[Rfam]
RNA sequence: ACGACCUUUAAAACAGUCCCGUGAGGCUGGGAAGGUAACGGAAUAAGCAGUCAGCUGCAUGCAGCUGGUGCUGUAAUCACUCUGAUUAUUCUGCCCUCUCAUCCACACGGUGAGAGGGUUUUAUUGUU
Numbered sequence: 001a002c003g004a005c006c007u008u009u010a011a012a013a014c015a016g017u018c019c020c021g022u023g024a025g026g027c028u029g030g031g032a033a034g035g036u037a038a039c040g041g042a043a044u045a046a047g048c049a050g051u052c053a054g055c056u057g058c059a060u061g062c063a064g065c066u067g068g069u070g071c072u073g074u075a076a077u078c079a080c081u082c083u084g085a086u087u088a089u090u091c092u093g094c095c096c097u098c099u100c101a102u103c104c105a106c107a108c109g110g111u112g113a114g115a116g117g118g119u120u121u122u123a124u125u126g127u128u
Stems, first nucleotide, its partner, number of pairs: 004036006014029005044075002047072001050069008089123001093119010

The record is a 128-nucleotide sequence from Mesobacillus campisalis, which matches "PyrR binding site" in Rfam. From the family's description: This family represents the PyrR binding site and terminator structure. This RNA structure is found upstream of a variety of genes involved in pyrimidine biosynthesis and transport. It scores 61 bits against the family's covariance model. The family's RNA type in Rfam is cis-regulatory element. The family has 41 seed sequences and 1,498 matches in Rfam 15.1. The organism belongs to Mesobacillus, within Bacteria. Rfam links the family to the GO terms pyrimidine nucleobase biosynthetic process and pyrimidine nucleobase transport. The family's consensus secondary structure is taken from published work.